[Rfam]
RNA: S4-Fusobacteriales ribosomal protein leader
Organism: Oceanivirga miroungae
RNA sequence: UUGUAAAUGUAUGUUUAGCCGUAGAGCUUAUUCUUAUCAAAAUUAUGGGUAAGGCAUAUUGAAGAA
Numbered sequence: 001u002u003g004u005a006a007a008u009g010u011a012u013g014u015u016u017a018g019c020c021g022u023a024g025a026g027c028u029u030a031u032u033c034u035u036a037u038c039a040a041a042a043u044u045a046u047g048g049g050u051a052a053g054g055c056a057u058a059u060u061g062a063a064g065a066a
Stems, first nucleotide, its partner, number of pairs: 009059005014030001018027002033053005